[Rfam]
This 92-nucleotide RNA sequence from Amycolatopsis rhizosphaerae belongs to the Rfam family "Glycine riboswitch aptamer". The organism belongs to Amycolatopsis, within Bacteria.

RNA sequence: CCACUCUGGAAAGCAGGCGCAGCCGGUGCGCCUCACCCAAGGUGAAAGCCGCGCGAGCGGUGAAACUCUCAGGUGCCGAUGACAGAGGGGGA
Numbered sequence: 001c002c003a004c005u006c007u008g009g010a011a012a013g014c015a016g017g018c019g020c021a022g023c024c025g026g027u028g029c030g031c032c033u034c035a036c037c038c039a040a041g042g043u044g045a046a047a048g049c050c051g052c053g054c055g056a057g058c059g060g061u062g063a064a065a066c067u068c069u070c071a072g073g074u075g076c077c078g079a080u081g082a083c084a085g086a087g088g089g090g091g092a
Stems, first nucleotide, its partner, number of pairs: 001090002004087005015033007035074003039069001042068001044066001048061002